[Rfam]
Shown here is a 145-nucleotide RNA from Leuconostoc lactis, a member of the family "FMN riboswitch aptamer (RFN element)".
RNA sequence: AUUAAUCUUCGGGGCAGGGUGAAAUUCCCGACCGACGGUGAUGGGACAAUGUGUCCCAAAGUCCGUGACCCGCGUGAUUGUUCAUGCGGUUGACACAGUGAGAAUCUGUGACCGACAGUUAAAGUCUGGAUGGGAGAAGAGAUAG
Numbered sequence: 001a002u003u004a005a006u007c008u009u010c011g012g013g014g015c016a017g018g019g020u021g022a023a024a025u026u027c028c029c030g031a032c033c034g035a036c037g038g039u040g041a042u043g044g045g046a047c048a049a050u051g052u053g054u055c056c057c058a059a060a061g062u063c064c065g066u067g068a069c070c071c072g073c074g075u076g077a078u079u080g081u082u083c084a085u086g087c088g089g090u091u092g093a094c095a096c097a098g099u100g101a102g103a104a105u106c107u108g109u110g111a112c113c114g115a116c117a118g119u120u121a122a123a124g125u126c127u128g129g130a131u132g133g134g135a136g137a138a139g140a141g142a143u144a145g
Stems, first nucleotide, its partner, number of pairs: 006140005017029003031125002033114002035066004061112002070089002094110005116128003
Source information:
Taxonomically the source falls in Leuconostoc (Bacteria, Bacillati, Bacillota, Bacilli). Rfam links the family to the GO term FMN binding.